[Rfam]
Description: This 54-nucleotide RNA sequence from Bagarius yarrelli belongs to the Rfam family "UnaL2 LINE 3' element".
RNA sequence: AUAUUAAAUAAAUGUAUGUCACUCUGGAUAAGAGCGUCUGCCAAAUGCCGUAAA
Numbered sequence: 001a002u003a004u005u006a007a008a009u010a011a012a013u014g015u016a017u018g019u020c021a022c023u024c025u026g027g028a029u030a031a032g033a034g035c036g037u038c039u040g041c042c043a044a045a046u047g048c049c050g051u052a053a054a
Base pairs, nucleotide, nucleotide: 013043014041015040016039020036022034023033024032025031
Dot-bracket structure: ............((((...(.((((.....)))).)..))).)...........
Description:
On this family, see Baba et al., RNA 2004: "Solution structure of an RNA stem-loop derived from the 3' conserved region of eel LINE UnaL2". Rfam links the family to the GO term transposition, RNA-mediated. It is annotated as a cis-regulatory element.